[Rfam]
RNA sequence: CUCUUAUCGCGAGAGGUGGAGGGACUGGCCCGAAGAAGCCCGGCAACCAGCAAACGGACGUCGUUUGCAAGGUGCCAAAUCCUGCAAAGCAUAGGCUUUGGAAGAUAAGAG
Numbered sequence: 001c002u003c004u005u006a007u008c009g010c011g012a013g014a015g016g017u018g019g020a021g022g023g024a025c026u027g028g029c030c031c032g033a034a035g036a037a038g039c040c041c042g043g044c045a046a047c048c049a050g051c052a053a054a055c056g057g058a059c060g061u062c063g064u065u066u067g068c069a070a071g072g073u074g075c076c077a078a079a080u081c082c083u084g085c086a087a088a089g090c091a092u093a094g095g096c097u098u099u100g101g102a103a104g105a106u107a108a109g110a111g
Stems, first nucleotide, its partner, number of pairs: 001111008013041001015040003021031003025084001027082002042076004047072002050068006080103001085100006
This 111-nucleotide RNA sequence from Texcoconibacillus texcoconensis belongs to the Rfam family "SAM riboswitch aptamer (S box leader)". Lineage of the source: Bacteria > Bacilli > Caryophanales > Bacillaceae > Texcoconibacillus. A search with the family's covariance model found it, with a score of 89 bits.